[Rfam]
This 64-nucleotide RNA sequence from Sarcophilus harrisii belongs to the Rfam family "Small nucleolar RNA SNORD73". The literature on the family includes a 1998 paper in Gene by Rebane et al., "A novel snoRNA (U73) is encoded within the introns of the human and mouse ribosomal protein S3a genes". Rfam classes the family as a C/D-box small nucleolar RNA. Rfam links the family to the GO terms RNA processing and nucleolus.
RNA sequence: AAUAAAUGAUGAAAAACGUUUCGGUCCCAAUUGAUAUCUAAUGAUAACACACUAUUCUGAUAUU
Numbered sequence: 001a002a003u004a005a006a007u008g009a010u011g012a013a014a015a016a017c018g019u020u021u022c023g024g025u026c027c028c029a030a031u032u033g034a035u036a037u038c039u040a041a042u043g044a045u046a047a048c049a050c051a052c053u054a055u056u057c058u059g060a061u062a063u064u
Stems, first nucleotide, its partner, number of pairs: 001064004